[Rfam]
RNA: DUF3800-IV RNA
RNA sequence: ACGGAGCUCCUGAUGCUCGCCGGGGAAAGCCAGCGGUGCUGCCACCGCACUCCUUAAGUGGAUCGGCCCCCGGGAGUUUCAGGAGCUCCGU
Numbered sequence: 001a002c003g004g005a006g007c008u009c010c011u012g013a014u015g016c017u018c019g020c021c022g023g024g025g026a027a028a029g030c031c032a033g034c035g036g037u038g039c040u041g042c043c044a045c046c047g048c049a050c051u052c053c054u055u056a057a058g059u060g061g062a063u064c065g066g067c068c069c070c071c072g073g074g075a076g077u078u079u080c081a082g083g084a085g086c087u088c089c090g091u
Stems, first nucleotide, its partner, number of pairs: 001091013015077004020073006029067003033048006051062003